[Rfam]
RNA sequence: GAGAUUUUGAGAAAUUCUGUCUUUAGUACGAGAGGACCAAGAUGGUUAAACCACUGGUGUUCCGGUUGUUAUAUCAAUAGCAUAGUCGGUUAACUAAGUUUAAAAUGAUAACUACUGAAAGCAUAUAAGUAGGAAGCAUAUUUCAAAAAUAAAUCUCCAAAGAAUUUGUAGUUCUUCUUAAGAUAACUUAAAGAAUAUAAGUUUGAUAGAUGUUAUGUGUAAAAAUAGCAAUAUUUUAGCUAAAACAUACUAAUUUUAUCGUGAGA
Dot-bracket structure: ((((.(((..((((..(((((((...............)))))))((((((...(((....(((((((((((....))))))..)))))....))).)))))).(((....(((((...........)))))....))).))))......)))))))..((((((.....)))))).....(((((((((.......)))))....((((((((..(.....(((((....)))))...)...))))).)))....))))......
Shown here is a 266-nucleotide part of an RNA from Candidatus Carsonella ruddii, a member of the family "Bacterial large subunit ribosomal RNA".
NCBI's taxonomy places the organism under Bacteria, Pseudomonadota, Oceanospirillales, Halomonadaceae, Candidatus Carsonella.
The sequence is in the family's curated seed alignment.
Rfam links the family to the GO terms ribosome and structural constituent of ribosome.